About this RNA:
Rfam assigns this 127-nucleotide sequence from Anolis carolinensis to the family "Small nucleolar RNA SNORD22".
[Rfam]
RNA sequence: UCCCAAUGAUGAUCUCUCAUACGUCUUACUAUCUGUUUUGGGGCUAGAACCUGCAAAGGUUGAACCCACUAGCACCAGCAGAUGGGAAAGAGGAAACUUGGCUCCGGAAGGAACAGUCUGAUGGGAU
Numbered sequence: 001u002c003c004c005a006a007u008g009a010u011g012a013u014c015u016c017u018c019a020u021a022c023g024u025c026u027u028a029c030u031a032u033c034u035g036u037u038u039u040g041g042g043g044c045u046a047g048a049a050c051c052u053g054c055a056a057a058g059g060u061u062g063a064a065c066c067c068a069c070u071a072g073c074a075c076c077a078g079c080a081g082a083u084g085g086g087a088a089a090g091a092g093g094a095a096a097c098u099u100g101g102c103u104c105c106g107g108a109a110g111g112a113a114c115a116g117u118c119u120g121a122u123g124g125g126a127u
Stems, first nucleotide, its partner, number of pairs: 001126004
Dot-bracket structure: ((((......................................................................................................................)))).

Annotation
On this family, see Tycowski et al., Nature 1996: "A mammalian gene with introns instead of exons generating stable RNA products". Taxonomically the source falls in Anolis (Eukaryota, Opisthokonta, Teleostomi, Toxicofera). The sequence is in the family's curated seed alignment.